[Rfam]
RNA sequence: AGAGGAAGGAAGCAUGGUAAUGUGUACAGAGAUUGAUCGAUAGUGGUCUGCAUGUCUGUCUGCUAUGAUCUAGCGACCUGGACUUUACCCGCACUC
Numbered sequence: 001a002g003a004g005g006a007a008g009g010a011a012g013c014a015u016g017g018u019a020a021u022g023u024g025u026a027c028a029g030a031g032a033u034u035g036a037u038c039g040a041u042a043g044u045g046g047u048c049u050g051c052a053u054g055u056c057u058g059u060c061u062g063c064u065a066u067g068a069u070c071u072a073g074c075g076a077c078c079u080g081g082a083c084u085u086u087a088c089c090c091g092c093a094c095u096c
Stems, first nucleotide, its partner, number of pairs: 012025004045078004054069003058063001
RNA: Small nucleolar RNA snoR100
Organism: Zizania palustris